This 159-nucleotide RNA from Subdoligranulum sp. APC924/74 belongs to the Rfam family "THF (Tetrahydrofolate) riboswitch aptamer". A reference for the family is Ames et al. (2010), "A eubacterial riboswitch class that senses the coenzyme tetrahydrofolate", Chem Biol. The organism belongs to Subdoligranulum, within Bacteria. From the family's description: Tetrahydrofolate (THF) riboswitch was first reported for Ames et al. as an RNA motif in 5' untranslated (5'-UTR)regions of folate transport and biosynthesis genes in Firmicutes genomes.

RNA sequence: CGCAGAGUAGAAACCCGCGCGUUAGGCAAAGCGGCAAUGGCGCCGCUUUGCCGCAGUGCCUGACCAACGGGGAGUUGUGGCAGGACGAAGAUGCAGGGCAGGGGAGUGCAAUGUGCACGCCGCUGCCGGCACGCGGUGCUGGUUUCGCAUCCCACUGCU
Dot-bracket structure: .((((....((((((.((((((.................................((.((((.(((...[[[.[...)))))))))..............................................))).))).)))))).].]]]..)))).